Small nucleolar RNA Z103: a 100-nucleotide RNA from Kingdonia uniflora. Taxonomically the source falls in Kingdonia (Eukaryota, Viridiplantae, Spermatophyta, Ranunculales). On this family, see Chen et al., Nucleic Acids Res 2003: "The high diversity of snoRNAs in plants: identification and comparative study of 120 snoRNA genes from Oryza sativa". The match comes from Rfam's covariance-model search (85 bits). Its family is annotated with nucleolus and RNA processing in the Gene Ontology. By type it is a C/D-box small nucleolar RNA.
RNA sequence: AUAGAAAUGAUGAUCAUUUCCCCACAUGAUCGACUUUGAUUAUUUCGAGCAUAUUAGUUAUUUCUCUUAGGAGAUUUACCAAGCUAGGAAUCUGAUCCAU
Number, nucleotide and partner (000 for none) at each position: 001a100002u099003a000004g097005a096006a000007a000008u000009g000010a000011u000012g000013a000014u000015c000016a000017u000018u000019u000020c000021c000022c000023c000024a000025c000026a000027u000028g000029a000030u000031c000032g000033a000034c000035u000036u000037u000038g000039a000040u000041u000042a000043u000044u000045u000046c000047g000048a000049g000050c000051a000052u000053a000054u000055u000056a000057g000058u000059u000060a000061u000062u000063u000064c000065u000066c000067u000068u000069a000070g000071g000072a000073g000074a000075u000076u000077u000078a000079c000080c000081a000082a000083g000084c000085u000086a000087g000088g000089a000090a000091u000092c000093u000094g000095a000096u005097c004098c000099a002100u001